[Rfam]
RNA sequence: UUUCGUUCUCGGGGCGGGGUGUAAUUCCCCACCGGCGGUAAGGAAGUGAUUCUAAGCCCGCGAGCGCCUGAUAUAGUUAACAUAAUAUAUAUUAGGGUCAGCAGAUCUGGUGUGAUUCCAGAGCCGACGGUGAUAGUCCGGAUGAUAGAGAACACUA
Numbered sequence: 001u002u003u004c005g006u007u008c009u010c011g012g013g014g015c016g017g018g019g020u021g022u023a024a025u026u027c028c029c030c031a032c033c034g035g036c037g038g039u040a041a042g043g044a045a046g047u048g049a050u051u052c053u054a055a056g057c058c059c060g061c062g063a064g065c066g067c068c069u070g071a072u073a074u075a076g077u078u079a080a081c082a083u084a085a086u087a088u089a090u091a092u093u094a095g096g097g098u099c100a101g102c103a104g105a106u107c108u109g110g111u112g113u114g115a116u117u118c119c120a121g122a123g124c125c126g127a128c129g130g131u132g133a134u135a136g137u138c139c140g141g142a143u144g145a146u147a148g149a150g151a152a153c154a155c156u157a
Stems, first nucleotide, its partner, number of pairs: 005153006017029003031137002033126002035061004056124002064102002106122005128140003

The record is a 157-nucleotide RNA from Osedax symbiont Rs1, which matches "FMN riboswitch aptamer (RFN element)" in Rfam. The family's consensus secondary structure is taken from published work. Taxonomically the source falls in Oceanospirillaceae (Bacteria, Pseudomonadati, Pseudomonadota, Gammaproteobacteria). The match comes from Rfam's covariance-model search (118 bits).